A member of the RNA family "mir-33 microRNA precursor family" from Dissostichus mawsoni, 67 nucleotides long. A search with the family's covariance model found it, with a score of 54 bits. The source organism's lineage runs through Eukaryota, Bilateria, Deuterostomia, Nototheniidae and Dissostichus. The literature on the family includes a 2010 paper in Mol Hum Reprod by Ahn et al., "MicroRNA transcriptome in the newborn mouse ovaries determined by massive parallel sequencing".
[Rfam]
Nucleotides: 067
Stems, first nucleotide, its partner, number of pairs: 001067004006063001007061004013055004021047007
Number, partner (000 for none) and nucleotide at each position: 001067c002066u003065g004064u005000g006063g007061u008060g009059c010058a011000u012000u013055g014054u015053a016052g017000u018000u019000g020000c021047a022046u023045u024044g025043c026042a027041u028000g029000u030000u031000g032000g033000g034000u035000a036000a037000c038000u039000c040000a041027g042026u043025g044024c045023a046022a047021u048000g049000g050000a051000u052016c053015u054014g055013c056000u057000c058010u059009g060008c061007a062000a063006c064004a065003c066002a067001g